[Rfam]
RNA: L31-Corynebacteriaceae ribosomal protein leader
RNA sequence: ACUCGGGCACGAUCCAUGCCGAAUGAGUGUGGAACCGACCCGAAGUCCAACCCUGAGGGA
Numbered sequence: 001a002c003u004c005g006g007g008c009a010c011g012a013u014c015c016a017u018g019c020c021g022a023a024u025g026a027g028u029g030u031g032g033a034a035c036c037g038a039c040c041c042g043a044a045g046u047c048c049a050a051c052c053c054u055g056a057g058g059g060a
Stems, first nucleotide, its partner, number of pairs: 001046003004042004013033007